Bacterial small subunit ribosomal RNA: a 588-nucleotide part of an RNA from Gemmata obscuriglobus. Pairs were carried over by alignment from the consensus structure, which is taken from published work.
RNA sequence: UGACGGGGGCUCACACAAGCGGUGGAGCAUGUGGCUUAAUUCGAGGCUACGCGAAGAACCUUAUCCUGGACUUGACAUGUGCGAAAGCGCUCGGCAGUAGGACCCGGAAACGGGAACGGACCCCAGCAAUGGGGGGACCGAGCACAGGUGCUGCAUGGCUGUCGUCAGCUCGUGUCGUGAGAUGUCGGGUUAAGUCCCAUAACGAGCGAAACCCUUACCUUUAGUUGCGACCCACAAGGGCACUCUAGAGGGACUGCCGGUGUCAAACCGGAGGAAGGCGGGGAUGACGUCAAGUCCUCAUGGCCUUUAUGUCCAGGGCUGCACACGUGCUACAAUGGUGUACACAGAGUGAAGCGACUCUGCGAAGAGGAGCCAAUCACAGAAAUUACACCCCAGUUCAGAUCGCAGGCUGCAACUCGCCUGCGUGAAGCCGGAAUCGCUAGUAAUCGCGGGUCAGCAACACCGCGGUGAAUGUGUUCCUGAGCCUUGUACACACCGCCCGUCAAGCCACGAAAGAGAGGGACGUCCGAAGCCACCUUCACCGGUGUCGAAGACGGACUUCUUGAUUGGGACUAAGUCGUAACAAGG
Numbered sequence: 001u002g003a004c005g006g007g008g009g010c011u012c013a014c015a016c017a018a019g020c021g022g023u024g025g026a027g028c029a030u031g032u033g034g035c036u037u038a039a040u041u042c043g044a045g046g047c048u049a050c051g052c053g054a055a056g057a058a059c060c061u062u063a064u065c066c067u068g069g070a071c072u073u074g075a076c077a078u079g080u081g082c083g084a085a086a087g088c089g090c091u092c093g094g095c096a097g098u099a100g101g102a103c104c105c106g107g108a109a110a111c112g113g114g115a116a117c118g119g120a121c122c123c124c125a126g127c128a129a130u131g132g133g134g135g136g137a138c139c140g141a142g143c144a145c146a147g148g149u150g151c152u153g154c155a156u157g158g159c160u161g162u163c164g165u166c167a168g169c170u171c172g173u174g175u176c177g178u179g180a181g182a183u184g185u186c187g188g189g190u191u192a193a194g195u196c197c198c199a200u201a202a203c204g205a206g207c208g209a210a211a212c213c214c215u216u217a218c219c220u221u222u223a224g225u226u227g228c229g230a231c232c233c234a235c236a237a238g239g240g241c242a243c244u245c246u247a248g249a250g251g252g253a254c255u256g257c258c259g260g261u262g263u264c265a266a267a268c269c270g271g272a273g274g275a276a277g278g279c280g281g282g283g284a285u286g287a288c289g290u291c292a293a294g295u296c297c298u299c300a301u302g303g304c305c306u307u308u309a310u311g312u313c314c315a316g317g318g319c320u321g322c323a324c325a326c327g328u329g330c331u332a333c334a335a336u337g338g339u340g341u342a343c344a345c346a347g348a349g350u351g352a353a354g355c356g357a358c359u360c361u362g363c364g365a366a367g368a369g370g371a372g373c374c375a376a377u378c379a380c381a382g383a384a385a386u387u388a389c390a391c392c393c394c395a396g397u398u399c400a401g402a403u404c405g406c407a408g409g410c411u412g413c414a415a416c417u418c419g420c421c422u423g424c425g426u427g428a429a430g431c432c433g434g435a436a437u438c439g440c441u442a443g444u445a446a447u448c449g450c451g452g453g454u455c456a457g458c459a460a461c462a463c464c465g466c467g468g469u470g471a472a473u474g475u476g477u478u479c480c481u482g483a484g485c486c487u488u489g490u491a492c493a494c495a496c497c498g499c500c501c502g503u504c505a506a507g508c509c510a511c512g513a514a515a516g517a518g519a520g521g522g523a524c525g526u527c528c529g530a531a532g533c534c535a536c537c538u539u540c541a542c543c544g545g546u547g548u549c550g551a552a553g554a555c556g557g558a559c560u561u562c563u564u565g566a567u568u569g570g571g572a573c574u575a576a577g578u579c580g581u582a583a584c585a586a587g588g
Stems, first nucleotide, its partner, number of pairs: 001493002003490003007487007015477002019440005024333001026331008034322002040055004065317007078144002082140002100117001103114004121136004147306002150304004156300002158295003161291001163289002168207006174183003187198003213283004218251007228240001232238001254274002257271005337392006349380003354373002359368003399430001404425007446469007496587001498584001501580002506574002509571001511569003516564006524556004532549001534547004